Shown here is a 57-nucleotide RNA sequence from Rathayibacter sp. Leaf296, a member of the family "msiK RNA".
Taxonomically the source falls in Rathayibacter (Bacteria, Actinomycetes, Micrococcales, Microbacteriaceae).
The family's RNA type in Rfam is cis-regulatory element.
A search with the family's covariance model found it, with a score of 58 bits.

[Rfam]
RNA sequence: CAUCAAUUCCAUUCACUCGGAUCGUCCGGCACGUACCUGCCGGUGAAGGAGCAAGAA
Number, nucleotide and partner (000 for none) at each position: 001c000002a000003u000004c000005a000006a000007u000008u000009c049010c048011a000012u047013u046014c045015a044016c000017u000018c000019g000020g000021a000022u000023c000024g000025u000026c043027c042028g041029g040030c039031a038032c000033g000034u000035a000036c000037c000038u031039g030040c029041c028042g027043g026044u015045g014046a013047a012048g010049g009050a000051g000052c000053a000054a000055g000056a000057a000